[Rfam]
RNA sequence: GGCAAUGACGCAGCUUAUGAGGUUCUAACCGAGGCGCGUCUAUUGCUGGUUGAAAACUAUUUCCAAACCCCCUCACUGGCCUCGGUUCAGCCGUGGCCUCUGAGAAUUUCUGGAAGGGCUCCCUUCGGGGUAAAGCC
Numbered sequence: 001g002g003c004a005a006u007g008a009c010g011c012a013g014c015u016u017a018u019g020a021g022g023u024u025c026u027a028a029c030c031g032a033g034g035c036g037c038g039u040c041u042a043u044u045g046c047u048g049g050u051u052g053a054a055a056a057c058u059a060u061u062u063c064c065a066a067a068c069c070c071c072c073u074c075a076c077u078g079g080c081c082u083c084g085g086u087u088c089a090g091c092c093g094u095g096g097c098c099u100c101u102g103a104g105a106a107u108u109u110c111u112g113g114a115a116g117g118g119c120u121c122c123c124u125u126c127g128g129g130g131u132a133a134a135g136c137c
Stems, first nucleotide, its partner, number of pairs: 007040005013035003021030003072104003078098004083093003117137004